Source information
Rfam assigns this 96-nucleotide sequence from Nematostella vectensis to the family "Small nucleolar SNORD12/SNORD106". Lineage of the source: Eukaryota > Cnidaria > Hexacorallia > Actiniaria > Nematostella. For this family Rfam cites "RNomics: an experimental approach that identifies 201 candidates for novel, small, non-messenger RNAs in mouse" (Huttenhofer et al., EMBO J, 2001). Clan: SNORD12 clan. Gene Ontology terms of the family: nucleolus and RNA processing. By type it is a C/D-box small nucleolar RNA. The base pairs follow the family's consensus structure, which was predicted with RNAalifold.
RNA sequence: GUGGUGUGGUGUGAUGAUCAAAUCUUUUUUCCCCAGCUUAUCGACCAUGGUGAUACUGUGCUGUACUUAUCAAGCCAAUUUGUCUGACCACACCUU
Numbered sequence: 001g002u003g004g005u006g007u008g009g010u011g012u013g014a015u016g017a018u019c020a021a022a023u024c025u026u027u028u029u030u031c032c033c034c035a036g037c038u039u040a041u042c043g044a045c046c047a048u049g050g051u052g053a054u055a056c057u058g059u060g061c062u063g064u065a066c067u068u069a070u071c072a073a074g075c076c077a078a079u080u081u082g083u084c085u086g087a088c089c090a091c092a093c094c095u096u
Base pairs, nucleotide, nucleotide: 001096003094004093005092006091007090008089009088